[Rfam]
Rfam assigns this 140-nucleotide sequence from Bacillus sp. MUM 13 to the family "Ribosomal protein L20 leader". The family's consensus secondary structure was predicted with CMfinder. Rfam links the family to the GO term regulation of gene expression. From the family's description: This family is a putative r-protein leader autoregulatory structure found in B. subtilis and other low-GC Gram-positive bacteria. It is located in the 5' untranslated regions of mRNAs encoding initiation factor 3 followed by ribosomal proteins L35 and L20 (infC-rpmI-rplT). A Rho-independent transcription terminator structure that is probably involved in regulation is included at the 3' end. Rfam classes the family as a cis-regulatory leader.
RNA sequence: GAGGAAAAGAAGAAGCACCCGCUUCUCACCUGGUUGACGCAAAUCGUGUUGUUAACAGGUUUCAUGAUUUGAUUAUUUGGAAUGAUUCUAUCUAGUCUAUCUGUGUGGGUGUUUCUAUGCAUCCACACUUUUUUAUUGAU
Numbered sequence: 001g002a003g004g005a006a007a008a009g010a011a012g013a014a015g016c017a018c019c020c021g022c023u024u025c026u027c028a029c030c031u032g033g034u035u036g037a038c039g040c041a042a043a044u045c046g047u048g049u050u051g052u053u054a055a056c057a058g059g060u061u062u063c064a065u066g067a068u069u070u071g072a073u074u075a076u077u078u079g080g081a082a083u084g085a086u087u088c089u090a091u092c093u094a095g096u097c098u099a100u101c102u103g104u105g106u107g108g109g110u111g112u113u114u115c116u117a118u119g120c121a122u123c124c125a126c127a128c129u130u131u132u133u134u135a136u137u138g139a140u
Base pairs, nucleotide, nucleotide: 011026012025013024014023015022016021028060029059030058036053037052038051039049040048104127105126106125107124108123109122110121111120112119